[Rfam]
RNA sequence: AAGAUUUGACCAUAAAAACUCCAUAUAUUUCUGGUAAUACGGUCCGGAAGUUUCUACUUACAUCCCGUAAAGAUGUGAACUAUGGCAAAAGGGACUUUGCGU
Numbered sequence: 001a002a003g004a005u006u007u008g009a010c011c012a013u014a015a016a017a018a019c020u021c022c023a024u025a026u027a028u029u030u031c032u033g034g035u036a037a038u039a040c041g042g043u044c045c046g047g048a049a050g051u052u053u054c055u056a057c058u059u060a061c062a063u064c065c066c067g068u069a070a071a072g073a074u075g076u077g078a079a080c081u082a083u084g085g086c087a088a089a090a091g092g093g094a095c096u097u098u099g100c101g102u
Stems, first nucleotide, its partner, number of pairs: 021085005029049006058078007